[Rfam]
RNA sequence: UUUUUUAUAGUGCCCUUUUUACAGUGCUUUAUAGAAAUAAUAGAAAUGUAAGCUUUUUAAAGAGCACUGUAAAAAGGGCACUAUAAAAAAA
Numbered sequence: 001u002u003u004u005u006u007a008u009a010g011u012g013c014c015c016u017u018u019u020u021a022c023a024g025u026g027c028u029u030u031a032u033a034g035a036a037a038u039a040a041u042a043g044a045a046a047u048g049u050a051a052g053c054u055u056u057u058u059a060a061a062g063a064g065c066a067c068u069g070u071a072a073a074a075a076g077g078g079c080a081c082u083a084u085a086a087a088a089a090a091a
Stems, first nucleotide, its partner, number of pairs: 001091003005086006012079008022069009
A member of the RNA family "mir-130 microRNA precursor family" from Lepisosteus oculatus, 91 nucleotides long. Rfam 15.1 lists 2,580 matches to the family in 658 species. The family's consensus secondary structure was predicted with PFOLD.